RNA sequence: AGGCAGCCCCCUUGCGGAUGUUUCAAAUGGCAGGGGAGGUGUUGCUCUACUCAGAAAUUAGAUCUUUUGCUCUUCAGACUUGCUGAGAUCAUUUUUAAUACUCUCUGAAGCUGGUCUAGUAAGCUCAAGUACAUU
Numbered sequence: 001a002g003g004c005a006g007c008c009c010c011c012u013u014g015c016g017g018a019u020g021u022u023u024c025a026a027a028u029g030g031c032a033g034g035g036g037a038g039g040u041g042u043u044g045c046u047c048u049a050c051u052c053a054g055a056a057a058u059u060a061g062a063u064c065u066u067u068u069g070c071u072c073u074u075c076a077g078a079c080u081u082g083c084u085g086a087g088a089u090c091a092u093u094u095u096u097a098a099u100a101c102u103c104u105c106u107g108a109a110g111c112u113g114g115u116c117u118a119g120u121a122a123g124c125u126c127a128a129g130u131a132c133a134u135u
Stems, first nucleotide, its partner, number of pairs: 002043004007039002009036007017028001064129003069124003076117005082111003087103002
The record is a 135-nucleotide RNA sequence from Aquilegia coerulea, which matches "Small nucleolar RNA snoR77" in Rfam. The literature on the family includes a 2002 paper in Curr Biol by Marker et al., "Experimental RNomics: identification of 140 candidates for small non-messenger RNAs in the plant Arabidopsis thaliana". Gene Ontology terms of the family: RNA processing and nucleolus. The match comes from Rfam's covariance-model search (108 bits). NCBI's taxonomy places the organism under Eukaryota, Streptophyta, Euphyllophyta, Magnoliopsida, Aquilegia. It is annotated as an H/ACA-box small nucleolar RNA.